The record is a 161-nucleotide sequence from Arabis nemorensis, which matches "Small nucleolar RNA snoR138" in Rfam.
[Rfam]
RNA sequence: AUAGCCUCCGAAUAACGAAAAGGUGAAAUAUAAGAACACUUUCUGGUUCAGACAGAGACUUAUAUAAAAAAAACUCGAAUCAGAUUAUUGAGGGUGAAAAAAAACUUUUUUUUGCCAUCAAAAUCUUCUUCCUUUUAUUGGAUGUUGAAAUUGGAAUAUUG
Numbered sequence: 001a002u003a004g005c006c007u008c009c010g011a012a013u014a015a016c017g018a019a020a021a022g023g024u025g026a027a028a029u030a031u032a033a034g035a036a037c038a039c040u041u042u043c044u045g046g047u048u049c050a051g052a053c054a055g056a057g058a059c060u061u062a063u064a065u066a067a068a069a070a071a072a073a074c075u076c077g078a079a080u081c082a083g084a085u086u087a088u089u090g091a092g093g094g095u096g097a098a099a100a101a102a103a104a105c106u107u108u109u110u111u112u113u114g115c116c117a118u119c120a121a122a123a124u125c126u127u128c129u130u131c132c133u134u135u136u137a138u139u140g141g142a143u144g145u146u147g148a149a150a151u152u153g154g155a156a157u158a159u160u161g
Stems, first nucleotide, its partner, number of pairs: 003060002006057003014048003018044001020042002023039003076154001078152003085123002090118001092116001094115001097112006128144001130142003
A reference for the family is Chen and Wu (2009), "Mining small RNA sequencing data: a new approach to identify small nucleolar RNAs in Arabidopsis", Nucleic Acids Res.